Shown here is a 130-nucleotide RNA sequence from Brochothrix campestris, a member of the family "PyrR binding site". The base pairs follow the family's consensus structure, which is taken from published work. Its family is annotated with pyrimidine nucleobase biosynthetic process and pyrimidine nucleobase transport in the Gene Ontology. It scores 61 bits against the family's covariance model.

[Rfam]
RNA sequence: AUAACCUUUAACCUAGUCCAGAGAGACUAAGAAGGCAUUGAAUCGUAUACAGGGGUAAAACUACCUUUGUAGAACAGUAGUUUGGCUACUGUUAAAAACGCUUAUGCCCUCGCAUAGGCGUUUUUUUUUC
Numbered sequence: 001a002u003a004a005c006c007u008u009u010a011a012c013c014u015a016g017u018c019c020a021g022a023g024a025g026a027c028u029a030a031g032a033a034g035g036c037a038u039u040g041a042a043u044c045g046u047a048u049a050c051a052g053g054g055g056u057a058a059a060a061c062u063a064c065c066u067u068u069g070u071a072g073a074a075c076a077g078u079a080g081u082u083u084g085g086c087u088a089c090u091g092u093u094a095a096a097a098a099c100g101c102u103u104a105u106g107c108c109c110u111c112g113c114a115u116a117g118g119c120g121u122u123u124u125u126u127u128u129u130c
Stems, first nucleotide, its partner, number of pairs: 005035005014029005046073001048071010094125014